[Rfam]
RNA sequence: CAGCCCCCAUGACGGUCUGGCUUCAAGCCAGCUCGCUGGUGAGCCAGACCUGAAGACCCUGGCGUG
Numbered sequence: 001c002a003g004c005c006c007c008c009a010u011g012a013c014g015g016u017c018u019g020g021c022u023u024c025a026a027g028c029c030a031g032c033u034c035g036c037u038g039g040u041g042a043g044c045c046a047g048a049c050c051u052g053a054a055g056a057c058c059c060u061g062g063c064g065u066g
Base pairs, nucleotide, nucleotide: 001066002065005062014050015049016048017047018046019045020044021043022042023041029038030037031036
RNA: Selenocysteine insertion sequence 1